RNA sequence: UUCAGAAAACGGCAAACUCAUUGAAAAAUGAGGGCGCAAAGUCGACAGGCCUAAGGGAUACGUAUUUUUAACGGAAAAUGCUACUAUGGCGGCUGGGCUACCUGG
Numbered sequence: 001u002u003c004a005g006a007a008a009a010c011g012g013c014a015a016a017c018u019c020a021u022u023g024a025a026a027a028a029u030g031a032g033g034g035c036g037c038a039a040a041g042u043c044g045a046c047a048g049g050c051c052u053a054a055g056g057g058a059u060a061c062g063u064a065u066u067u068u069u070a071a072c073g074g075a076a077a078a079u080g081c082u083a084c085u086a087u088g089g090c091g092g093c094u095g096g097g098c099u100a101c102c103u104g105g
Stems, first nucleotide, its partner, number of pairs: 012037002017032006040099004046095003049090003056084001058082001
Notes:
Shown here is a 105-nucleotide RNA from Thalassobacillus cyri, a member of the family "c-di-GMP-I riboswitch aptamer". Its family is annotated with cyclic-di-GMP binding in the Gene Ontology. The organism belongs to Thalassobacillus, within Bacteria.